[Rfam]
RNA sequence: AUACACCAGCAGUAGGACUCAGCGACCGUCACAACAAGGUUGUGCUGGUAUCCGACGGUCGUAUAGCCCUGUCUUGCAGGUUGCCUUGCACUGACGUGCCGCGC
Numbered sequence: 001a002u003a004c005a006c007c008a009g010c011a012g013u014a015g016g017a018c019u020c021a022g023c024g025a026c027c028g029u030c031a032c033a034a035c036a037a038g039g040u041u042g043u044g045c046u047g048g049u050a051u052c053c054g055a056c057g058g059u060c061g062u063a064u065a066g067c068c069c070u071g072u073c074u075u076g077c078a079g080g081u082u083g084c085c086u087u088g089c090a091c092u093g094a095c096g097u098g099c100c101g102c103g104c
Stems, first nucleotide, its partner, number of pairs: 005049007014070003018066002022062008038053002041050001075090006